[Rfam]
Description:
A member of the RNA family "c-di-AMP riboswitch aptamer (ydaO/yuaA leader)" from Cohnella zeiphila, 149 nucleotides long. Rfam's curators write: This family represents a conserved RNA structure found upstream of the ydaO and yuaA genes in Bacillus subtilis and related genes in other bacteria. The organism belongs to Cohnella, within Bacteria.

Nucleotides: 149
Stems, first nucleotide, its partner, number of pairs: 011136004018039009040131006050059001060116003068093002096110003
Number, partner (000 for none) and nucleotide at each position: 001000g002000a003000u004000a005000a006000g007000u008000a009000c010000a011136c012135g013134c014133u015000u016000a017000g018039u019038u020037u021036c022035c023034g024033g025032c026031c027000g028000c029000c030000a031026g032025g033024c034023c035022g036021g037020g038019g039018a040131g041130c042129g043128g044127g045126g046000g047000a048000c049000c050059c051000g052000u053000u054000a055000c056000a057000u058000g059050g060116g061115g062114g063000c064000g065000a066000a067000u068093c069092c070000g071000a072000c073000g074000u075000u076000c077000u078000u079000c080000u081000c082000g083000a084000a085000g086000g087000a088000c089000g090000a091000a092069g093068g094000u095000a096110g097109g098108g099000a100000a101000c102000c103000a104000u105000c106000u107000g108098c109097c110096c111000g112000a113000g114062c115061c116060c117000g118000u119000c120000a121000g122000c123000u124000a125000a126045c127044c128043u129042c130041g131040u132000a133014g134013g135012c136011g137000g138000a139000a140000g141000a142000u143000g144000g145000g146000u147000c148000g149000g